[Rfam]
RNA sequence: AGCUCAUCAAGACCGGCUGAGGGACAGGCCCUUUGACGCCGGGGCAACCAGCGAUUUUCGCCAGGUGCCAAUUCCUGCGGACGCCCGAAAACGGGCAUGCCGAGAGAUGAGUG
Numbered sequence: 001a002g003c004u005c006a007u008c009a010a011g012a013c014c015g016g017c018u019g020a021g022g023g024a025c026a027g028g029c030c031c032u033u034u035g036a037c038g039c040c041g042g043g044g045c046a047a048c049c050a051g052c053g054a055u056u057u058u059c060g061c062c063a064g065g066u067g068c069c070a071a072u073u074c075c076u077g078c079g080g081a082c083g084c085c086c087g088a089a090a091a092c093g094g095g096c097a098u099g100c101c102g103a104g105a106g107a108u109g110a111g112u113g
Stems, first nucleotide, its partner, number of pairs: 002112007013042005021031003025077004043069004048065002051061003073105001078102003
The family of this 113-nucleotide sequence from Wenzhouxiangella sp. AB-CW3 is "SAM riboswitch aptamer (S box leader)". The source organism's lineage runs through Bacteria, Pseudomonadati, Gammaproteobacteria, Chromatiales and Wenzhouxiangella.